[Rfam]
Rfam assigns this 75-nucleotide RNA from Hermetia illucens to the family "mir-932 microRNA precursor family".
A search with the family's covariance model found it, with a score of 67 bits.
The source organism's lineage runs through Eukaryota, Panarthropoda, Arthropoda, Panorpida and Hermetia.
RNA sequence: GGCGACCUCAAUUCCGUAGUGCAUUGCAGUGUGCUAAUUUAUCAAUUGCAAGCACUGCGGGAGUGAAGUUGACUG
Number, nucleotide and partner (000 for none) at each position: 001g000002g000003c000004g000005a000006c068007c000008u066009c065010a064011a000012u000013u061014c060015c059016g058017u057018a000019g000020u054021g053022c052023a000024u051025u050026g049027c048028a047029g000030u000031g000032u000033g000034c000035u000036a000037a000038u000039u000040u000041a000042u000043c000044a000045a000046u000047u028048g027049c026050a025051a024052g022053c021054a020055c000056u000057g017058c016059g015060g014061g013062a000063g000064u010065g009066a008067a000068g006069u000070u000071g000072a000073c000074u000075g000